[Rfam]
Rfam assigns this 70-nucleotide sequence from Amphibalanus amphitrite to the family "mir-10 microRNA precursor family".
On this family, see Lee and Ambros, Science 2001: "An extensive class of small RNAs in Caenorhabditis elegans".
The family's consensus secondary structure was predicted with PFOLD.
A search with the family's covariance model found it, with a score of 50 bits.
RNA sequence: CGGACUCAACCCGUAGAUCCGAACUUGUGGUGCGUUUGGUCUCAAGUUUGAUUCUAUGGGUGUAGGCCGG
Numbered sequence: 001c002g003g004a005c006u007c008a009a010c011c012c013g014u015a016g017a018u019c020c021g022a023a024c025u026u027g028u029g030g031u032g033c034g035u036u037u038g039g040u041c042u043c044a045a046g047u048u049u050g051a052u053u054c055u056a057u058g059g060g061u062g063u064a065g066g067c068c069g070g
Stems, first nucleotide, its partner, number of pairs: 002068002005065002010060003015055003020050008029041001